[Rfam]
RNA sequence: GUCGUCGUGAGGCGAGGUGGGGAGGAAGCCCGAGGCGAAACCCUGCACCGAGGAACGCGAACCGCGUAUGAGGCAUGCCAGCUGGGGUGAGCCUGCAUGCUACGGCGAAGCCCGUCACUGCCAAGACGGCUGGUGUGUAAACGCGGCGGUUGCAGGGGGAAAGUGAUCGUU
Number, nucleotide and partner (000 for none) at each position: 001g000002u015003c014004g013005u012006c011007g000008u000009g000010a000011g006012g005013c004014g003015a002016g000017g000018u000019g000020g000021g000022g000023a000024g000025g000026a000027a000028g171029c000030c169031c000032g167033a000034g000035g164036c163037g000038a000039a000040a000041c157042c156043c155044u154045g153046c000047a150048c149049c148050g147051a000052g000053g000054a000055a000056c000057g000058c000059g000060a000061a000062c146063c145064g144065c143066g142067u141068a000069u000070g000071a000072g000073g138074c137075a136076u000077g134078c133079c132080a131081g130082c129083u128084g000085g113086g112087g111088u110089g000090a000091g106092c105093c104094u000095g000096c000097a000098u000099g000100c000101u000102a000103c000104g093105g092106c091107g000108a000109a000110g088111c087112c086113c085114g000115u000116c000117a000118c000119u000120g000121c000122c000123a000124a000125g000126a000127c000128g083129g082130c081131u080132g079133g078134u077135g000136u075137g074138u073139a000140a000141a067142c066143g065144c064145g063146g062147c050148g049149g048150u047151u000152g000153c045154a044155g043156g042157g041158g000159g000160a000161a000162a000163g036164u035165g000166a000167u032168c000169g030170u000171u028

Group II catalytic intron D1-D4-3: a 171-nucleotide sequence from Nonomuraea polychroma. Gene Ontology term of the family: Group II intron splicing. Pairs were carried over by alignment from the consensus structure. A search with the family's covariance model found it, with a score of 128 bits.